[Rfam]
Nucleotides: 132
Stems, first nucleotide, its partner, number of pairs: 002052004015040004020035001022033001070124004075119001085106001088103004
Number, partner (000 for none) and nucleotide at each position: 001000a002052c003051u004050c005049c006000c007000u008000u009000u010000c011000u012000u013000g014000u015040c016039a017038g018037g019000u020035a021000c022033c023000a024000g025000g026000u027000a028000u029000g030000u031000g032000c033022g034000u035020u036000c037018c038017c039016u040015g041000u042000u043000a044000u045000g046000u047000c048000u049005g050004g051003a052002g053000g054000c055000a056000g057000a058000g059000g060000g061000a062000a063000a064000a065000a066000g067000c068000c069000g070124u071123a072122g073121u074000c075119c076000u077000c078000u079000g080000g081000g082000a083000u084000g085106c086000c087000a088103g089102u090101g091100g092000c093000u094000u095000c096000c097000u098000g099000u100091c101090u102089g103088c104000c105000c106085g107000u108000u109000u110000u111000a112000u113000c114000c115000u116000c117000a118000a119075g120000c121073a122072c123071u124070a125000g126000g127000a128000c129000a130000c131000g132000g